[Rfam]
RNA sequence: GACGUUCAUCUGAGGCACCCUGGAGACUACUCCACUACGCCCUAGACGGAAGUAAGGAGAUUGGCUCCCGAAGGAACGCACC
Numbered sequence: 001g002a003c004g005u006u007c008a009u010c011u012g013a014g015g016c017a018c019c020c021u022g023g024a025g026a027c028u029a030c031u032c033c034a035c036u037a038c039g040c041c042c043u044a045g046a047c048g049g050a051a052g053u054a055a056g057g058a059g060a061u062u063g064g065c066u067c068c069c070g071a072a073g074g075a076a077c078g079c080a081c082c
Stems, first nucleotide, its partner, number of pairs: 003078005009046003049079001056068004